Rfam assigns this 352-nucleotide RNA from Alkalimarinus sediminis to the family "Bacterial RNase P class A". The family's consensus secondary structure is taken from published work.
RNA sequence: UGAGUUCGCCAGGCAGUCGCUGUCUAUGCAAAUAGAUGGAGGAAAGUCCGGGCUCCAAAGGGUAGAGUGCCAGGUAACGCCUGGGGGGUGAGAGCCCACGGCUAGUGCAGCAGAGAGUAUACCGCCUAAGCAACUUCGGUUGCCGGUAAGGGUGAAAUGGUGCGGUAAGAGCGCACCGCAUGACUGGUAACAGUUCAUGGCGAUGGUAAACCCCACUCGGAGCAAGACCAAAUAGGGAUCCAUUGGUGUGACCCGCACUGGAUCCGGGUAGGUUGCUUGAGGUAUGCGGUGACGCAUAUCCCAGAUGAAUGACUGUCCACGACAGAACCCGGCUUAUCGGCGAACUCACUUU
Numbered sequence: 001u002g003a004g005u006u007c008g009c010c011a012g013g014c015a016g017u018c019g020c021u022g023u024c025u026a027u028g029c030a031a032a033u034a035g036a037u038g039g040a041g042g043a044a045a046g047u048c049c050g051g052g053c054u055c056c057a058a059a060g061g062g063u064a065g066a067g068u069g070c071c072a073g074g075u076a077a078c079g080c081c082u083g084g085g086g087g088g089u090g091a092g093a094g095c096c097c098a099c100g101g102c103u104a105g106u107g108c109a110g111c112a113g114a115g116a117g118u119a120u121a122c123c124g125c126c127u128a129a130g131c132a133a134c135u136u137c138g139g140u141u142g143c144c145g146g147u148a149a150g151g152g153u154g155a156a157a158u159g160g161u162g163c164g165g166u167a168a169g170a171g172c173g174c175a176c177c178g179c180a181u182g183a184c185u186g187g188u189a190a191c192a193g194u195u196c197a198u199g200g201c202g203a204u205g206g207u208a209a210a211c212c213c214c215a216c217u218c219g220g221a222g223c224a225a226g227a228c229c230a231a232a233u234a235g236g237g238a239u240c241c242a243u244u245g246g247u248g249u250g251a252c253c254c255g256c257a258c259u260g261g262a263u264c265c266g267g268g269u270a271g272g273u274u275g276c277u278u279g280a281g282g283u284a285u286g287c288g289g290u291g292a293c294g295c296a297u298a299u300c301c302c303a304g305a306u307g308a309a310u311g312a313c314u315g316u317c318c319a320c321g322a323c324a325g326a327a328c329c330c331g332g333c334u335u336a337u338c339g340g341c342g343a344a345c346u347c348a349c350u351u352u
Base pairs, nucleotide, nucleotide: 001348002347003346004345005344006343007342008341009340010339011337012317013316014315015314016313017312018311020039021038022037023036024035025034026033027032044335045334046333048332049331050330051329052328053222054221055220056219060254061253062252063251065218066217067216068215069214070084071083072082073081074080085099086097087096088095089094100213101212105211106210107207108206122151123150124147125146126145130143131142132141133140134139159177160176161175162174163173164172178201179199180198181197182196183195184193185192186191226274227273228272229271236265237264238263239262240261241260245259246258247257248256249255281300282299283298284297285296286295287294288293